[Rfam]
RNA sequence: GUAAUCGGAUUCGUAUCAAUCCACAUGUAUUGUUGUGGGUUGAAGUGAAACUUGAACUAAAUUCUACCCCAAUCCACUCCAACAUAUGUGGAUUGAGGUAAAUCCGACA
Numbered sequence: 001g002u003a004a005u006c007g008g009a010u011u012c013g014u015a016u017c018a019a020u021c022c023a024c025a026u027g028u029a030u031u032g033u034u035g036u037g038g039g040u041u042g043a044a045g046u047g048a049a050a051c052u053u054g055a056a057c058u059a060a061a062u063u064c065u066a067c068c069c070c071a072a073u074c075c076a077c078u079c080c081a082a083c084a085u086a087u088g089u090g091g092a093u094u095g096a097g098g099u100a101a102a103u104c105c106g107a108c109a
Base pairs, nucleotide, nucleotide: 005107006106007105008104009103010102011101013099014098016096017095018094019093020092021091022090023089024088025087026086027085028084030082031081032080035077036076037075038074039073040072041071042070045067046066047065